[Rfam]
RNA sequence: AUUGGUUUUCAGGGCAGGGUGUGAUUCCCGACCGGCGGUAAAGUCCGCGACCCAGCGCAAGCUGGUUGAAUUGGUGAGAUUCCAAUACCGACAGUUAAAGUCUGGAUGGAAGAAAACAGAG
Numbered sequence: 001a002u003u004g005g006u007u008u009u010c011a012g013g014g015c016a017g018g019g020u021g022u023g024a025u026u027c028c029c030g031a032c033c034g035g036c037g038g039u040a041a042a043g044u045c046c047g048c049g050a051c052c053c054a055g056c057g058c059a060a061g062c063u064g065g066u067u068g069a070a071u072u073g074g075u076g077a078g079a080u081u082c083c084a085a086u087a088c089c090g091a092c093a094g095u096u097a098a099a100g101u102c103u104g105g106a107u108g109g110a111a112g113a114a115a116a117c118a119g120a121g
Stems, first nucleotide, its partner, number of pairs: 003119001005117006017029003031101002033090002035048004043088002052065002070086005092104003